RNA sequence: CGGAUGGUGAAGUCCCAGUCCUCCUGCGGGCCGGCCAGCACCCGGUCGCCGAAGUAGUCGCCGUCGGCCAGCACGCCGAGCACGGUCUGGUCGCCGUACUCGCCCUGGCCGAUCUUCUCGACCUUGCCGUGCGCGAUGAGGUGGACCGCGUCCUGCGGGCGGCCCCGCUCGACGAUCACGUCGCCGGGCUGGUGCUCGUGCUGCUCGAAGCGGGCGGCCAGGGCGGACAGGGCCUCGACGUCGUCGAAGUCGCGCAGCAGCGGGAGCUCGGUCAGCUCCUGCGGGACCACCGAGAUGUCGGCGCCCACGUUGGUGAAGGUGAGCCGGCCGUCGCCGAUGGCGUAGCUGAGCCUGCGGUUGACCCGGAAGGCACCACCCUUGGCCUCCACCCAGGGCAGCACCUUGAGCAGCCACCGGGAGGUGAUGUUCUGCAUCUGGGGGACGGUCUUGGUGGUGGUCGCGAGGUUUCGCGCCGCCCGCCUGCUCAGGCUGAGCUGAGGCUGCUCGA
Number, nucleotide and partner (000 for none) at each position: 001c000002g000003g000004a000005u000006g390007g389008u388009g387010a000011a385012g384013u000014c382015c381016c000017a000018g328019u327020c000021c000022u321023c000024c319025u318026g000027c315028g000029g000030g000031c000032c000033g000034g000035c313036c312037a311038g310039c309040a000041c000042c000043c000044g000045g305046u000047c303048g302049c301050c300051g299052a298053a000054g233055u232056a000057g000058u229059c000060g000061c226062c225063g224064u223065c111066g110067g109068c108069c000070a000071g000072c000073a000074c000075g103076c000077c102078g101079a100080g099081c000082a097083c096084g095085g094086u093087c000088u000089g000090g000091u000092c000093g086094c085095c084096g083097u082098a000099c080100u079101c078102g077103c075104c000105c000106u000107g000108g068109c067110c066111g065112a000113u000114c000115u000116u000117c222118u221119c000120g219121a000122c217123c216124u000125u000126g000127c212128c000129g000130u209131g206132c000133g204134c203135g202136a000137u000138g199139a000140g197141g000142u000143g196144g195145a000146c000147c000148g000149c192150g000151u000152c000153c000154u000155g000156c187157g000158g185159g184160c183161g000162g177163c000164c000165c174166c000167g000168c000169u000170c000171g000172a000173c000174g165175a000176u000177c162178a000179c000180g000181u000182c000183g160184c159185c158186g000187g156188g000189c000190u000191g000192g149193u000194g000195c144196u143197c140198g000199u138200g000201c000202u135203g134204c133205u000206c131207g000208a000209a130210g000211c000212g127213g000214g000215c000216g123217g122218c000219c120220a000221g118222g117223g064224c063225g062226g061227a000228c000229a058230g000231g000232g055233c054234c000235u295236c294237g000238a000239c000240g290241u289242c000243g287244u286245c285246g000247a000248a000249g000250u000251c281252g280253c000254g278255c000256a277257g276258c275259a000260g000261c270262g269263g000264g000265a000266g000267c000268u000269c262270g261271g000272u000273c000274a000275g258276c257277u256278c254279c000280u252281g251282c000283g000284g000285g245286a244287c243288c000289a241290c240291c000292g000293a000294g236295a235296u000297g000298u052299c051300g050301g049302c048303g047304c000305c045306c000307a000308c000309g039310u038311u037312g036313g035314u000315g027316a000317a000318g025319g024320u000321g022322a000323g000324c000325c000326g000327g019328c018329c342330g341331u340332c339333g000334c000335c000336g000337a000338u000339g332340g331341c330342g329343u000344a000345g000346c000347u000348g000349a000350g000351c000352c000353u000354g376355c000356g374357g373358u000359u000360g000361a000362c370363c369364c000365g000366g000367a000368a000369g363370g362371c000372a000373c357374c356375a000376c354377c000378c000379u000380u000381g015382g014383c000384c012385u011386c000387c009388a008389c007390c006391c431392a430393g429394g428395g427396c426397a425398g000399c423400a422401c421402c000403u418404u417405g000406a000407g415408c000409a000410g000411c000412c000413a000414c000415c407416g000417g404418g403419a000420g000421g401422u400423g399424a000425u397426g396427u395428u394429c393430u392431g391432c000433a000434u000435c000436u000437g477438g476439g474440g473441g000442a000443c470444g469445g468446u000447c465448u464449u463450g000451g461452u460453g000454g000455u000456g000457g000458u000459c000460g452461c451462g000463a449464g448465g447466u000467u000468u445469c444470g443471c000472g000473c440474c439475g000476c438477c437478c507479g506480c000481c503482u000483g501484c499485u498486c497487a496488g495489g000490c000491u000492g000493a000494g000495c488496u487497g486498a485499g484500g000501c483502u000503g481504c000505u000506c479507g478508a000
A member of the RNA family "Saccharopolyspora sRNA 350" from Saccharothrix syringae, 508 nucleotides long. The base pairs follow the family's consensus structure, which was predicted with RNAfold. NCBI's taxonomy places the organism under Bacteria, Actinomycetota, Actinomycetes, Pseudonocardiales, Saccharothrix. The match comes from Rfam's covariance-model search (224 bits).